[Rfam]
Fluoride riboswitch aptamer (crcB RNA motif): a 67-nucleotide RNA from Mongoliitalea lutea.
Lineage of the source: Bacteria > Bacteroidota > Cytophagales > Cyclobacteriaceae > Mongoliitalea.
A search with the family's covariance model found it, with a score of 59 bits.
Rfam links the family to the GO terms positive regulation of gene expression and response to fluoride.

RNA sequence: GUUGUUAAUGGUGAUGGGGUUCCACCAGUAACCGCACAUGUUCAGUGCUGAUGACUCCUACUCUAAC
Numbered sequence: 001g002u003u004g005u006u007a008a009u010g011g012u013g014a015u016g017g018g019g020u021u022c023c024a025c026c027a028g029u030a031a032c033c034g035c036a037c038a039u040g041u042u043c044a045g046u047g048c049u050g051a052u053g054a055c056u057c058c059u060a061c062u063c064u065a066a067c
Stems, first nucleotide, its partner, number of pairs: 010026004016058006034048004